[Rfam]
RNA sequence: ACUCUGUGAUGAAUAUAAAAUGACAAGCAUAUGACUGAACUUAAAAGUGAUGUCAUCUUAUUACUGAGAAGU
Numbered sequence: 001a002c003u004c005u006g007u008g009a010u011g012a013a014u015a016u017a018a019a020a021u022g023a024c025a026a027g028c029a030u031a032u033g034a035c036u037g038a039a040c041u042u043a044a045a046a047g048u049g050a051u052g053u054c055a056u057c058u059u060a061u062u063a064c065u066g067a068g069a070a071g072u
Stems, first nucleotide, its partner, number of pairs: 001072002003069002
RNA: Small nucleolar RNA SNORD27